The record is a 54-nucleotide sequence from Mycolicibacterium brumae, which matches "L31-Actinobacteria ribosomal protein leader" in Rfam. It scores 49 bits against the family's covariance model. Lineage of the source: Bacteria > Actinomycetota > Actinomycetes > Mycobacteriaceae > Mycobacterium (subgen. Mycolicibacterium).
RNA sequence: CAGGUUCCGGUUCACGCCCAAUUACCCCAGGUCAGUUCGGGCGACCCGGCGGCC
Dot-bracket structure: ..(((.((((....(((((.(.(...........).).)))))..))))..)))
Rfam classes the family as a cis-regulatory leader.